[Rfam]
RNA: msiK RNA
Organism: Corynebacterium durum
RNA sequence: GCACUACAUCUCUCACUACGGAUCGUUCGGCACGUACCUGCCGAUGGAGGUUACGCACUA
Numbered sequence: 001g002c003a004c005u006a007c008a009u010c011u012c013u014c015a016c017u018a019c020g021g022a023u024c025g026u027u028c029g030g031c032a033c034g035u036a037c038c039u040g041c042c043g044a045u046g047g048a049g050g051u052u053a054c055g056c057a058c059u060a
Stems, first nucleotide, its partner, number of pairs: 009050004014046002027044006